RNA sequence: UUGCAAGUCAGGCUCCUGGCUGGAGUCCAGCUCUCAGCUGGGUCCAGGCUCUAGCCAGGGUCUGACUACAUG
Numbered sequence: 001u002u003g004c005a006a007g008u009c010a011g012g013c014u015c016c017u018g019g020c021u022g023g024a025g026u027c028c029a030g031c032u033c034u035c036a037g038c039u040g041g042g043u044c045c046a047g048g049c050u051c052u053a054g055c056c057a058g059g060g061u062c063u064g065a066c067u068a069c070a071u072g
Stems, first nucleotide, its partner, number of pairs: 007066003011062004017057008027041005
This 72-nucleotide RNA sequence from Mus musculus belongs to the Rfam family "mir-344 microRNA precursor family".
Rfam 15.1 lists 339 matches to the family in 9 species.
Its family is annotated with miRNA-mediated post-transcriptional gene silencing and RISC complex in the Gene Ontology.
The sequence is in the family's curated seed alignment.